RNA sequence: AAUAGAAGAAUGACAAAUUAUAUAUUUCCUCCUAAUUUUCAAUUUUUUUCCUCCUCAAAAAUUCAAAUCCAACUAAAAAUAUUAAAAAUUAGGAGAAAGAAUCUAAUUUAUUAUUCUCCUAUU
Number, nucleotide and partner (000 for none) at each position: 001a123002a122003u121004a120005g119006a000007a117008g116009a115010a114011u113012g112013a111014c000015a109016a108017a107018u106019u105020a104021u000022a102023u000024a000025u099026u098027u097028c000029c095030u094031c093032c092033u091034a090035a089036u088037u087038u086039u085040c000041a083042a082043u000044u000045u079046u078047u077048u076049u000050c000051c000052u000053c000054c000055u000056c000057a000058a000059a000060a000061a000062u000063u000064c000065a000066a000067a000068u000069c000070c000071a000072a000073c000074u000075a000076a048077a047078a046079a045080u000081a000082u042083u041084a000085a039086a038087a037088a036089u035090u034091a033092g032093g031094a030095g029096a000097a027098a026099g025100a000101a000102u022103c000104u020105a019106a018107u017108u016109u015110a000111u013112u012113a011114u010115u009116c008117u007118c000119c005120u004121a003122u002123u001
A member of the RNA family "MIR7504 microRNA precursor family" from Gossypium anomalum, 123 nucleotides long. The family's consensus secondary structure was predicted with RNAalifold. Gene Ontology terms of the family: miRNA-mediated post-transcriptional gene silencing and RISC complex. A search with the family's covariance model found it, with a score of 87 bits. NCBI's taxonomy places the organism under Eukaryota, Embryophyta, Spermatophyta, Malvaceae, Gossypium.